This 382-nucleotide RNA sequence from Pilimelia anulata belongs to the Rfam family "Bacterial RNase P class A".

RNA sequence: CGAGUCGGUCGGGCGGUCGCGUCAGCGGGGAACUGCUGCCGAGGAACGUCCGGACUCCACAGGGCAGGGUGGUUGUCAACGGCAACCCGGGGUGACCCGCGGGACAGUGCCACAGAGAACAGACCGCCGGCCUCGGUCGGUAAGGGUGAAACGGUGGGGUAAGAGCCCACCAGCGCCCCGGGUGACCGGGGCGGCUAGGUAAACCCCACCCGGAGCAAGGCCAAGAAGGGCCGCGUGAGCGGCCCGCGCGAGCGUUCGAGGACGGCCCGUCCGAUGCUCGCGGGUAGGCCGCUGGAGCCCGUCGGCGACGACGGGCCGAGAUGGAUGACCGCCCCUCGGCGCAAGCCGAGGACAGAAUCCGGCGUACAGACCGACUCGUCCG
Numbered sequence: 001c002g003a004g005u006c007g008g009u010c011g012g013g014c015g016g017u018c019g020c021g022u023c024a025g026c027g028g029g030g031a032a033c034u035g036c037u038g039c040c041g042a043g044g045a046a047c048g049u050c051c052g053g054a055c056u057c058c059a060c061a062g063g064g065c066a067g068g069g070u071g072g073u074u075g076u077c078a079a080c081g082g083c084a085a086c087c088c089g090g091g092g093u094g095a096c097c098c099g100c101g102g103g104a105c106a107g108u109g110c111c112a113c114a115g116a117g118a119a120c121a122g123a124c125c126g127c128c129g130g131c132c133u134c135g136g137u138c139g140g141u142a143a144g145g146g147u148g149a150a151a152c153g154g155u156g157g158g159g160u161a162a163g164a165g166c167c168c169a170c171c172a173g174c175g176c177c178c179c180g181g182g183u184g185a186c187c188g189g190g191g192c193g194g195c196u197a198g199g200u201a202a203a204c205c206c207c208a209c210c211c212g213g214a215g216c217a218a219g220g221c222c223a224a225g226a227a228g229g230g231c232c233g234c235g236u237g238a239g240c241g242g243c244c245c246g247c248g249c250g251a252g253c254g255u256u257c258g259a260g261g262a263c264g265g266c267c268c269g270u271c272c273g274a275u276g277c278u279c280g281c282g283g284g285u286a287g288g289c290c291g292c293u294g295g296a297g298c299c300c301g302u303c304g305g306c307g308a309c310g311a312c313g314g315g316c317c318g319a320g321a322u323g324g325a326u327g328a329c330c331g332c333c334c335c336u337c338g339g340c341g342c343a344a345g346c347c348g349a350g351g352a353c354a355g356a357a358u359c360c361g362g363c364g365u366a367c368a369g370a371c372c373g374a375c376u377c378g379u380c381c382g
Stems, first nucleotide, its partner, number of pairs: 001378010011367001012333007020041002023038006046365003050362005055215004062268004067211005072086005087101001088099004102206002107204002109200003124145002126141006153171006173195001174193008219290004248281006260272004297316008